[Rfam]
RNA: Streptomyces-metK RNA
RNA sequence: ACGAGAUGCCGUGCCCGUCCGAGCGGCGCGACCGAUAAACUGGCCGCGGAGUGCCGGGCGCAGCCCUGUGCACUCCGCCAAGAUUCAGCCAGCAGCCGCUGCAACCCCAGGGAG
Numbered sequence: 001a002c003g004a005g006a007u008g009c010c011g012u013g014c015c016c017g018u019c020c021g022a023g024c025g026g027c028g029c030g031a032c033c034g035a036u037a038a039a040c041u042g043g044c045c046g047c048g049g050a051g052u053g054c055c056g057g058g059c060g061c062a063g064c065c066c067u068g069u070g071c072a073c074u075c076c077g078c079c080a081a082g083a084u085u086c087a088g089c090c091a092g093c094a095g096c097c098g099c100u101g102c103a104a105c106c107c108c109a110g111g112g113a114g
Stems, first nucleotide, its partner, number of pairs: 048076006055068004090101004